Source information:
Rfam assigns this 146-nucleotide RNA from Pipistrellus kuhlii to the family "Small nucleolar RNA SNORA48". Taxonomically the source falls in Pipistrellus (Eukaryota, Chordata, Chiroptera, Vespertilionidae).

RNA sequence: AACCAGCUGGCAAUGGACAAGGAGACACCUGAUUGGUGGUGUUGGUCUUAUGUCAGUCAGGGGCAAAGCAGACGUACAGUCCUUAGUUUAUCCUAGCUUGAUGCCUGUGUCAGUGGCCAGAGCUGGUUCAUGCCUGAGGCACAUAG
Numbered sequence: 001a002a003c004c005a006g007c008u009g010g011c012a013a014u015g016g017a018c019a020a021g022g023a024g025a026c027a028c029c030u031g032a033u034u035g036g037u038g039g040u041g042u043u044g045g046u047c048u049u050a051u052g053u054c055a056g057u058c059a060g061g062g063g064c065a066a067a068g069c070a071g072a073c074g075u076a077c078a079g080u081c082c083u084u085a086g087u088u089u090a091u092c093c094u095a096g097c098u099u100g101a102u103g104c105c106u107g108u109g110u111c112a113g114u115g116g117c118c119a120g121a122g123c124u125g126g127u128u129c130a131u132g133c134c135u136g137a138g139g140c141a142c143a144u145a146g
Stems, first nucleotide, its partner, number of pairs: 003063002007060003014055003020049003024043006086140004100134001102132001106130002109128001111126001113124001
The family has 24 seed sequences and 2,109 matches in Rfam 15.1. By type it is an H/ACA-box small nucleolar RNA. Gene Ontology terms of the family: nucleolus and RNA processing. The snoRNA ACA 48 has been identified to guide pseudouridylation of the residue U3797 in the 28S rRNA subunit.